Record summary
Rfam assigns this 91-nucleotide RNA sequence from Thiopseudomonas alkaliphila to the family "SAH (S-adenosyl-L-homocysteine) riboswitch aptamer". It scores 57 bits against the family's covariance model. The family has 52 seed sequences and 1,354 matches in Rfam 15.1.

[Rfam]
RNA sequence: UAUUACGAGGGGCGCUGCAGCAGAAGUUUCUGUCAGGCUCGUAAUGGCACGCUGUAACGCUACAGCCUCGUUCAAACGGCGCCCAUUCGCG
Numbered sequence: 001u002a003u004u005a006c007g008a009g010g011g012g013c014g015c016u017g018c019a020g021c022a023g024a025a026g027u028u029u030c031u032g033u034c035a036g037g038c039u040c041g042u043a044a045u046g047g048c049a050c051g052c053u054g055u056a057a058c059g060c061u062a063c064a065g066c067c068u069c070g071u072u073c074a075a076a077c078g079g080c081g082c083c084c085a086u087u088c089g090c091g
Base pairs, nucleotide, nucleotide: 002045003044004043005042006041007040008039021032022031023030024029